Description:
mir-8517 microRNA precursor family: a 108-nucleotide RNA sequence from Plutella xylostella. NCBI's taxonomy places the organism under Eukaryota, Eumetazoa, Panorpida, Ditrysia, Plutella. Its family is annotated with RISC complex and miRNA-mediated post-transcriptional gene silencing in the Gene Ontology.
[Rfam]
RNA sequence: UUAGUGGACGCUUUAGUUAUUGAACUGUUUUGUCACUCUCUGUCAAAGAACAAAUUGUUCUCUGUAAGAGAGUGACAACACAGUUCACUAGCAAAAACGUUCUGUAAC
Dot-bracket structure: (((..(.....(((.((((.(((((((((((..((.............((((...))))...))..)))..........)))))))).)))).))).....)..))).